[Rfam]
RNA sequence: CUGAUGUUUAUGAAGGUUUGCACUGAAAGCAGGAAGACUGUGAGUGCAGGCCUGAAGUCCUGAUCAC
Numbered sequence: 001c002u003g004a005u006g007u008u009u010a011u012g013a014a015g016g017u018u019u020g021c022a023c024u025g026a027a028a029g030c031a032g033g034a035a036g037a038c039u040g041u042g043a044g045u046g047c048a049g050g051c052c053u054g055a056a057g058u059c060c061u062g063a064u065c066a067c
Stems, first nucleotide, its partner, number of pairs: 002066004015052010030040003

Selenocysteine insertion sequence 1: a 67-nucleotide RNA sequence from Chanos chanos.
On this family, see Lambert et al., Biochimie 2002: "A survey of metazoan selenocysteine insertion sequences".
Rfam 15.1 lists 3,793 matches to the family in 721 species.
The organism belongs to Chanos, within Eukaryota.
The family's RNA type in Rfam is cis-regulatory element.